[Rfam]
RNA sequence: UGUGCACCAGUGGAGUCCCUCGGCCUGGCCUGCAACCUCUCGCAAUCCAGGUCCCUUUGGGGGAUGUUGGAAGGCCAGUUUCAUUCCGAUCCUGCAGGCCAGGCCGAGGGACUCCACUGGUGCACA
Numbered sequence: 001u002g003u004g005c006a007c008c009a010g011u012g013g014a015g016u017c018c019c020u021c022g023g024c025c026u027g028g029c030c031u032g033c034a035a036c037c038u039c040u041c042g043c044a045a046u047c048c049a050g051g052u053c054c055c056u057u058u059g060g061g062g063g064a065u066g067u068u069g070g071a072a073g074g075c076c077a078g079u080u081u082c083a084u085u086c087c088g089a090u091c092c093u094g095c096a097g098g099c100c101a102g103g104c105c106g107a108g109g110g111a112c113u114c115c116a117c118u119g120g121u122g123c124a125c126a
Base pairs, nucleotide, nucleotide: 003124004123006121008119009118010117012115013114014113015112016111017110018109019108020107021106022105023104024103025102027100028099029098030097031096032095033094034093
Rfam assigns this 126-nucleotide sequence from Cnephaeus nilssonii to the family "mir-9193 microRNA precursor family".
NCBI's taxonomy places the organism under Eukaryota, Eumetazoa, Chiroptera, Vespertilionidae, Cnephaeus.
Rfam links the family to the GO terms miRNA-mediated post-transcriptional gene silencing and RISC complex.
The family's consensus secondary structure was predicted with RNAalifold.